[Rfam]
RNA sequence: GUCGGCGGAGGAUAGAGGAAGUCGCCACCAGGCGACUGGUCGAGAAAUCGGCC
Numbered sequence: 001g002u003c004g005g006c007g008g009a010g011g012a013u014a015g016a017g018g019a020a021g022u023c024g025c026c027a028c029c030a031g032g033c034g035a036c037u038g039g040u041c042g043a044g045a046a047a048u049c050g051g052c053c
Base pairs, nucleotide, nucleotide: 020037021036022035023034024033025032026031
The record is a 53-nucleotide RNA sequence from Halorarum halophilum, which matches "leuA-Halobacteria RNA" in Rfam. The base pairs follow the family's consensus structure, which is taken from published work. Taxonomically the source falls in Halorarum (Archaea, Methanobacteriota, Halobacteria, Haloferacaceae). It is annotated as a cis-regulatory element.